[Rfam]
RNA sequence: GAGCAAGCCUCCAGCGUGCUUGGGUCUGGAGUGGCCCUGUGCGUUCCCACUGGGUUGGCAAGAACAGUUUUGAAACAGUUUGAGGCCUUGCUCUACACUACCUCCAGAGUAAGUUUAUAGAAAUUUCAGACAAUU
Numbered sequence: 001g002a003g004c005a006a007g008c009c010u011c012c013a014g015c016g017u018g019c020u021u022g023g024g025u026c027u028g029g030a031g032u033g034g035c036c037c038u039g040u041g042c043g044u045u046c047c048c049a050c051u052g053g054g055u056u057g058g059c060a061a062g063a064a065c066a067g068u069u070u071u072g073a074a075a076c077a078g079u080u081u082g083a084g085g086c087c088u089u090g091c092u093c094u095a096c097a098c099u100a101c102c103u104c105c106a107g108a109g110u111a112a113g114u115u116u117a118u119a120g121a122a123a124u125u126u127c128a129g130a131c132a133a134u135u
Stems, first nucleotide, its partner, number of pairs: 003059002006056003017043003022037005071128005087113005093107002
Dot-bracket structure: ..((.(((........(((..(((((......)))))...)))..........))).))...........(((((...........(((((.((...........)).)))))..........))))).......
RNA: Small nucleolar RNA SNORA9